[Rfam]
RNA: SAM riboswitch aptamer (S box leader)
Organism: Glutamicibacter sp. BW77
RNA sequence: UAACCAUCCCGAGCGGCCAAGAGAUCUGGCUCUGUGACGCCGCAGCAACCACCACACACGAUUUGUAAAUAGAUGUGUGGCCGGUGCUACCGCCAGGAACGAUGGAGA
Numbered sequence: 001u002a003a004c005c006a007u008c009c010c011g012a013g014c015g016g017c018c019a020a021g022a023g024a025u026c027u028g029g030c031u032c033u034g035u036g037a038c039g040c041c042g043c044a045g046c047a048a049c050c051a052c053c054a055c056a057c058a059c060g061a062u063u064u065g066u067a068a069a070u071a072g073a074u075g076u077g078u079g080g081c082c083g084g085u086g087c088u089a090c091c092g093c094c095a096g097g098a099a100c101g102a103u104g105g106a107g108a
Stems, first nucleotide, its partner, number of pairs: 001108001004105005013043005021032003026096004044088004049084002052080007092100001